[Rfam]
RNA sequence: CCCUGACAGUUACAUUCCCGUAACUGACUAACCCAAGACAGGAGAUUAACAUG
Numbered sequence: 001c002c003c004u005g006a007c008a009g010u011u012a013c014a015u016u017c018c019c020g021u022a023a024c025u026g027a028c029u030a031a032c033c034c035a036a037g038a039c040a041g042g043a044g045a046u047u048a049a050c051a052u053g
Stems, first nucleotide, its partner, number of pairs: 002042004007026005
A member of the RNA family "Mu-gpT-DE RNA", 53 nucleotides long. It is one of the family's seed sequences. The base pairs follow the family's consensus structure, which is taken from published work.